A member of the RNA family "Small nucleolar RNA R64/Z200 family" from Digitaria exilis, 94 nucleotides long.
The source organism's lineage runs through Eukaryota, Streptophytina, Embryophyta, Tracheophyta and Digitaria.
Rfam classes the family as a C/D-box small nucleolar RNA.
Rfam links the family to the GO terms RNA processing and nucleolus.
[Rfam]
RNA sequence: AAACGCUAUGAUGAUUCAUGAAAAUAUAUUCGCAUGUCAGACUUCAGAGAUGCAAUUGCAUUGAUGAGAAGAUAUUUCAUGUUCUGAGCAGUAU
Numbered sequence: 001a002a003a004c005g006c007u008a009u010g011a012u013g014a015u016u017c018a019u020g021a022a023a024a025u026a027u028a029u030u031c032g033c034a035u036g037u038c039a040g041a042c043u044u045c046a047g048a049g050a051u052g053c054a055a056u057u058g059c060a061u062u063g064a065u066g067a068g069a070a071g072a073u074a075u076u077u078c079a080u081g082u083u084c085u086g087a088g089c090a091g092u093a094u
Base pairs, nucleotide, nucleotide: 001094003092004091005089006088049062050061051060052059